The record is a 107-nucleotide sequence from Solimonas terrae, which matches "Guanidine-I riboswitch aptamer" in Rfam.

RNA sequence: UGAGUUGGUGGCUAGGGUUCCAGCUUCGUCGUCCGGCGAAGUGUUCGGUCCGAGAGCUGCCGUCCGGAUGAAGAUCCGGAGCACGGCGGGAUAAAAGCCCGGGAGAC
Numbered sequence: 001u002g003a004g005u006u007g008g009u010g011g012c013u014a015g016g017g018u019u020c021c022a023g024c025u026u027c028g029u030c031g032u033c034c035g036g037c038g039a040a041g042u043g044u045u046c047g048g049u050c051c052g053a054g055a056g057c058u059g060c061c062g063u064c065c066g067g068a069u070g071a072a073g074a075u076c077c078g079g080a081g082c083a084c085g086g087c088g089g090g091a092u093a094a095a096a097g098c099c100c101g102g103g104a105g106a107c
Stems, first nucleotide, its partner, number of pairs: 007061006015051002020048002022045001023042006063080007082102001084105001088100003
Record summary
Taxonomically the source falls in Solimonas (Bacteria, Pseudomonadota, Nevskiales, Nevskiaceae).